[Rfam]
RNA: Selenocysteine transfer RNA
Organism: Comamonas kerstersii
RNA sequence: GGAAGGCAAUCGUGCCCGGUGGUGCGGCCAGGCUUCAAACUUGGUGGAGGGUGUUAGCCACUCUCGGGUUGGUUCGACUCCAGCUGCUUUCC
Numbered sequence: 001g002g003a004a005g006g007c008a009a010u011c012g013u014g015c016c017c018g019g020u021g022g023u024g025c026g027g028c029c030a031g032g033c034u035u036c037a038a039a040c041u042u043g044g045u046g047g048a049g050g051g052u053g054u055u056a057g058c059c060a061c062u063c064u065c066g067g068g069u070u071g072g073u074u075c076g077a078c079u080c081c082a083g084c085u086g087c088u089u090u091c092c
Stems, first nucleotide, its partner, number of pairs: 001092008011026006027045006047065005069083004